[Rfam]
RNA: Small nucleolar RNA SNORA55
RNA sequence: GCACUCCAGCAAACUCAUCCCUUCUGUGUUAGUGAAGGCCUGGGCAAUGACGGUGCCAUAGUGAUCCAAAGUGUAUCCAGAUGGGCCCUCCUCUUAUGUUGGGGCUUGUCUCUACAGCUUUGACACACUG
Numbered sequence: 001g002c003a004c005u006c007c008a009g010c011a012a013a014c015u016c017a018u019c020c021c022u023u024c025u026g027u028g029u030u031a032g033u034g035a036a037g038g039c040c041u042g043g044g045c046a047a048u049g050a051c052g053g054u055g056c057c058a059u060a061g062u063g064a065u066c067c068a069a070a071g072u073g074u075a076u077c078c079a080g081a082u083g084g085g086c087c088c089u090c091c092u093c094u095u096a097u098g099u100u101g102g103g104g105c106u107u108g109u110c111u112c113u114a115c116a117g118c119u120u121u122g123a124c125a126c127a128c129u130g
Stems, first nucleotide, its partner, number of pairs: 001056005014044004020038002067122005079111008090102002